RNA: Purine riboswitch aptamer
RNA sequence: AAUAAUUUAUUACUAAAAACUCAUAUAAUCUGAAGAAUAUGGCUUUAGAAGUUUCUACCGUGUUGCCUUAAACGACACGACUAUGAGUAAAUGAAUAACUUUA
Numbered sequence: 001a002a003u004a005a006u007u008u009a010u011u012a013c014u015a016a017a018a019a020c021u022c023a024u025a026u027a028a029u030c031u032g033a034a035g036a037a038u039a040u041g042g043c044u045u046u047a048g049a050a051g052u053u054u055c056u057a058c059c060g061u062g063u064u065g066c067c068u069u070a071a072a073c074g075a076c077a078c079g080a081c082u083a084u085g086a087g088u089a090a091a092u093g094a095a096u097a098a099c100u101u102u103a
Stems, first nucleotide, its partner, number of pairs: 019088007029049007059079007